[Rfam]
Selenocysteine transfer RNA: a 93-nucleotide RNA sequence from Oribacterium sp. oral taxon 078. Its family is annotated with triplet codon-amino acid adaptor activity in the Gene Ontology. Rfam 15.1 lists 4,211 matches to the family in 3,344 species. The base pairs follow the family's consensus structure, which is taken from published work.
RNA sequence: GGAGGUGGUUAGGUAACUGGUGUGCCUCCUGGUCUUCAAAACCAGUGUUGGGCGCGUGAGCGUCCUGGGUGAGUUCGAUUCUCACACGCCUUC
Number, nucleotide and partner (000 for none) at each position: 001g093002g092003a091004g090005g089006u088007g087008g085009u000010u000011a027012g026013g025014u024015a023016a000017c022018u000019g000020g000021u000022g017023u015024g014025c013026c012027u011028c000029c045030u044031g043032g042033u041034c000035u000036u000037c000038a000039a000040a000041a033042c032043c031044a030045g029046u000047g000048u067049u000050g065051g064052g063053c000054g000055c000056g000057u000058g000059a000060g000061c000062g000063u052064c051065c050066u000067g048068g000069g000070u084071g083072a082073g081074u000075u000076c000077g000078a000079u000080u000081c073082u072083c071084a070085c008086a000087c007088g006089c005090c004091u003092u002093c001